[Rfam]
RNA sequence: GGAGUUGGCCAGACAGUCGCCGCCGAUCGCCGCUGGCGUGUCGGGGGAGGAAAGUCCGGGCUCCACAGGGCGGAGUGCCAGGUAACGCCUGGGCGGCGUGAGCCGAUGGAAAGUGCAGCAGAGAGCAGACCGCCUACGCCUCCUACGGGAGGCCGGUAAGGGUGAAAGGGUGCGGUAAGAGCGCACCGCGCGCCUGGCAACAGUGCGUGGCACGGUAAACCCCACUCGGAGCAAGACCAAAUAGGAACCCCAAGGCGUGGCCCGCGCUGGGUUCGGGUAGGUUGCUUGAGAGCGCCGGUGACGGCGUUCCUAGACGAAUGACUGUCCUCGACAGAACCCGGCUUAUCGGCCGACUCCCACC
Numbered sequence: 001g002g003a004g005u006u007g008g009c010c011a012g013a014c015a016g017u018c019g020c021c022g023c024c025g026a027u028c029g030c031c032g033c034u035g036g037c038g039u040g041u042c043g044g045g046g047g048a049g050g051a052a053a054g055u056c057c058g059g060g061c062u063c064c065a066c067a068g069g070g071c072g073g074a075g076u077g078c079c080a081g082g083u084a085a086c087g088c089c090u091g092g093g094c095g096g097c098g099u100g101a102g103c104c105g106a107u108g109g110a111a112a113g114u115g116c117a118g119c120a121g122a123g124a125g126c127a128g129a130c131c132g133c134c135u136a137c138g139c140c141u142c143c144u145a146c147g148g149g150a151g152g153c154c155g156g157u158a159a160g161g162g163u164g165a166a167a168g169g170g171u172g173c174g175g176u177a178a179g180a181g182c183g184c185a186c187c188g189c190g191c192g193c194c195u196g197g198c199a200a201c202a203g204u205g206c207g208u209g210g211c212a213c214g215g216u217a218a219a220c221c222c223c224a225c226u227c228g229g230a231g232c233a234a235g236a237c238c239a240a241a242u243a244g245g246a247a248c249c250c251c252a253a254g255g256c257g258u259g260g261c262c263c264g265c266g267c268u269g270g271g272u273u274c275g276g277g278u279a280g281g282u283u284g285c286u287u288g289a290g291a292g293c294g295c296c297g298g299u300g301a302c303g304g305c306g307u308u309c310c311u312a313g314a315c316g317a318a319u320g321a322c323u324g325u326c327c328u329c330g331a332c333a334g335a336a337c338c339c340g341g342c343u344u345a346u347c348g349g350c351c352g353a354c355u356c357c358c359a360c361c
Stems, first nucleotide, its partner, number of pairs: 001357010011346001012326007020047002023044005052344003056341005061231004068263004073227005078092005093107001094105004108222002113220002115216002130161002132157003138153006169187006188211001189209005194203003235283004245274006254268005290309008
This 361-nucleotide RNA from Halomonas halmophila belongs to the Rfam family "Bacterial RNase P class A". A reference for the family is Frank and Pace (1998), "Ribonuclease P: unity and diversity in a tRNA processing ribozyme", Annu Rev Biochem. The organism belongs to Halomonas, within Bacteria. The match comes from Rfam's covariance-model search (322 bits). Ribonuclease P (RNase P) is a ubiquitous endoribonuclease, found in archaea, bacteria and eukarya as well as chloroplasts and mitochondria.